About this RNA
A member of the RNA family "Transposase-2 RNA", 66 nucleotides long. Pairs were carried over by alignment from the consensus structure, which is taken from published work. Rfam classes the family as a small RNA.
RNA sequence: GAAACGCGAACCAAGCAGCGGAAAUCCGCACAAGACUGGAGCGGACACCCGCAAGGGCGUCCUGCA
Numbered sequence: 001g002a003a004a005c006g007c008g009a010a011c012c013a014a015g016c017a018g019c020g021g022a023a024a025u026c027c028g029c030a031c032a033a034g035a036c037u038g039g040a041g042c043g044g045a046c047a048c049c050c051g052c053a054a055g056g057g058c059g060u061c062c063u064g065c066a
Stems, first nucleotide, its partner, number of pairs: 011039002014037002018029004043062004048057003